[Rfam]
RNA sequence: UCAUCACCAUCAUCAUCCUUAGUCAGUCUGUCGGGAGAUGAGCGCAUACCCGGGAGACAGGAAAUCUCCCGGUGGUUAAUUUGGUUAUAGUCAGAUUGCAAACCCUCGGGAACUAAGCUCCCGAGGGUUUUUUCAU
Numbered sequence: 001u002c003a004u005c006a007c008c009a010u011c012a013u014c015a016u017c018c019u020u021a022g023u024c025a026g027u028c029u030g031u032c033g034g035g036a037g038a039u040g041a042g043c044g045c046a047u048a049c050c051c052g053g054g055a056g057a058c059a060g061g062a063a064a065u066c067u068c069c070c071g072g073u074g075g076u077u078a079a080u081u082u083g084g085u086u087a088u089a090g091u092c093a094g095a096u097u098g099c100a101a102a103c104c105c106u107c108g109g110g111a112a113c114u115a116a117g118c119u120c121c122c123g124a125g126g127g128u129u130u131u132u133u134c135a136u
Stems, first nucleotide, its partner, number of pairs: 009047002011040004017035003021031001049072002052070006098132001100130012
A member of the RNA family "Histidine operon leader" from Vibrio palustris, 136 nucleotides long. The family's RNA type in Rfam is cis-regulatory leader. The source organism's lineage runs through Bacteria, Pseudomonadati, Vibrionales, Vibrionaceae and Vibrio. A reference for the family is Kolter and Yanofsky (1982), "Attenuation in amino acid biosynthetic operons", Annu Rev Genet. A search with the family's covariance model found it, with a score of 73 bits. The family's consensus secondary structure is taken from published work. Rfam links the family to the GO term histidine biosynthetic process. Rfam describes the family as follows. At least 6 amino acid operons are known to be regulated by attenuation. In each a leader sequence of 150-200 bp is found upstream of the first gene in the operon.